[Rfam]
RNA: Small nucleolar RNA R38
Organism: Penicillium antarcticum
RNA sequence: AUCUUUUAUGAUGAGUUCAUAUUAUAGUUAUCCCUGUCAGAACAAUACUGUUGAGGAACACGCACUCUGAAAAAAAA
Numbered sequence: 001a002u003c004u005u006u007u008a009u010g011a012u013g014a015g016u017u018c019a020u021a022u023u024a025u026a027g028u029u030a031u032c033c034c035u036g037u038c039a040g041a042a043c044a045a046u047a048c049u050g051u052u053g054a055g056g057a058a059c060a061c062g063c064a065c066u067c068u069g070a071a072a073a074a075a076a077a
Base pairs, nucleotide, nucleotide: 002076004074005073006072007071